[Rfam]
RNA sequence: GGAACUGAAUACUACCCAUUUCGUAUAACCUUAAUAAUUGGAUUAAGGGUCUCUACUUAGAAACCGUAAAUUUCUAGCUACGAAAAAUGUGCGCAUUUUA
Number, nucleotide and partner (000 for none) at each position: 001g000002g000003a000004a000005c000006u000007g000008a000009a000010u000011a000012c000013u000014a000015c000016c000017c000018a000019u085020u084021u083022c082023g081024u080025a079026u000027a000028a000029c048030c047031u046032u045033a044034a043035u042036a000037a000038u000039u000040g000041g000042a035043u034044u033045a032046a031047g030048g029049g000050u000051c000052u000053c000054u000055a000056c000057u077058u076059a075060g074061a073062a072063a071064c000065c000066g000067u000068a000069a000070a000071u063072u062073u061074c060075u059076a058077g057078c000079u025080a024081c023082g022083a021084a020085a019086a000087a000088u000089g000090u000091g000092c000093g000094c000095a000096u000097u000098u000099u000100a000
Rfam assigns this 100-nucleotide sequence from Paenibacillus sp. yr247 to the family "Purine riboswitch aptamer".
Taxonomically the source falls in Paenibacillus (Bacteria, Bacillati, Bacillota, Bacilli).
The base pairs follow the family's consensus structure, which is taken from published work.